[Rfam]
RNA sequence: GGCUACUCAGAAGUAGUGAGUUAUAUGAAUUGAUUGUUUGCAGUCAGGUACAGUUUGAACUCCUUGUUCUACUGUUUCCUGCUUCUCACUACUGCACUUGACUAGUCUUAA
Numbered sequence: 001g002g003c004u005a006c007u008c009a010g011a012a013g014u015a016g017u018g019a020g021u022u023a024u025a026u027g028a029a030u031u032g033a034u035u036g037u038u039u040g041c042a043g044u045c046a047g048g049u050a051c052a053g054u055u056u057g058a059a060c061u062c063c064u065u066g067u068u069c070u071a072c073u074g075u076u077u078c079c080u081g082c083u084u085c086u087c088a089c090u091a092c093u094g095c096a097c098u099u100g101a102c103u104a105g106u107c108u109u110a111a
Stems, first nucleotide, its partner, number of pairs: 001107005007101002010099002013095002015090006042073002046070002
Dot-bracket structure: (((((.((.((.((((((((.....................((..((.....................)).))...........))))))...))..)))).)))))....

Overview:
The record is a 111-nucleotide RNA sequence from Prolemur simus, which matches "Y RNA" in Rfam. It is annotated as a non-coding RNA gene. Y RNAs are components of the Ro ribonucleoprotein particle (Ro RNP), in association with Ro60 and La proteins. A reference for the family is Teunissen et al. (2000), "Conserved features of Y RNAs: a comparison of experimentally derived secondary structures", Nucleic Acids Res. The base pairs follow the family's consensus structure, which is taken from published work. Lineage of the source: Eukaryota > Bilateria > Vertebrata > Strepsirrhini > Prolemur.